[Rfam]
Rfam assigns this 280-nucleotide part of an RNA from Brassica oleracea to the family "Eukaryotic large subunit ribosomal RNA". Pairs were carried over by alignment from the consensus structure, which is taken from published work.

RNA sequence: GAGUCAAGCAUUGCUGCGAGUGCUAGGGUGUCAAACCCGUGCGCGCAGUGAAAGCAAACGCAGGAGGGAGCCUCGGCGCACCUCCGACCGAUCCUGAUGUACUCGGAUGGAUUUGAGUAGGAGCAGUUAUGCUUGGACCCGAAAGAUGGUGAACUUUGCGUGGAUAGGGUGAAGCCAGAGGAAACUCUGGUGGAGGCUCGCAGCGGUUCUGACGUGCAAAUCGAUCGUCAAAUCUGCGCAAGGGGGCGAAAGACCAAUCGAACCAUCUAGUAGCUGGUUA
Numbered sequence: 001g002a003g004u005c006a007a008g009c010a011u012u013g014c015u016g017c018g019a020g021u022g023c024u025a026g027g028g029u030g031u032c033a034a035a036c037c038c039g040u041g042c043g044c045g046c047a048g049u050g051a052a053a054g055c056a057a058a059c060g061c062a063g064g065a066g067g068g069a070g071c072c073u074c075g076g077c078g079c080a081c082c083u084c085c086g087a088c089c090g091a092u093c094c095u096g097a098u099g100u101a102c103u104c105g106g107a108u109g110g111a112u113u114u115g116a117g118u119a120g121g122a123g124c125a126g127u128u129a130u131g132c133u134u135g136g137a138c139c140c141g142a143a144a145g146a147u148g149g150u151g152a153a154c155u156u157u158g159c160g161u162g163g164a165u166a167g168g169g170u171g172a173a174g175c176c177a178g179a180g181g182a183a184a185c186u187c188u189g190g191u192g193g194a195g196g197c198u199c200g201c202a203g204c205g206g207u208u209c210u211g212a213c214g215u216g217c218a219a220a221u222c223g224a225u226c227g228u229c230a231a232a233u234c235u236g237c238g239c240a241a242g243g244g245g246g247c248g249a250a251a252g253a254c255c256a257a258u259c260g261a262a263c264c265a266u267c268u269a270g271u272a273g274c275u276g277g278u279u280a
Stems, first nucleotide, its partner, number of pairs: 005135007013127005020044003026038004048055002063085005070077002087118002089115003092111003098105002138277002141274001145267006154243011165231001167199004174191007203228004208224002211222002245255002
Source information: The match comes from Rfam's covariance-model search (3301 bits).